[Rfam]
RNA sequence: GUUUCAGAUGGGCCCUUGUGGGGUCGAAGC
Numbered sequence: 001g002u003u004u005c006a007g008a009u010g011g012g013c014c015c016u017u018g019u020g021g022g023g024u025c026g027a028a029g030c
Stems, first nucleotide, its partner, number of pairs: 011025005
Dot-bracket structure: ..........(((((.....))))).....

Shown here is a 30-nucleotide sequence from Halobellus salinus, a member of the family "CRISPR RNA direct repeat element". The source organism's lineage runs through Archaea, Methanobacteriati, Methanobacteriota, Halobacteria and Halobellus. Rfam 15.1 lists 2,265 matches to the family in 51 species.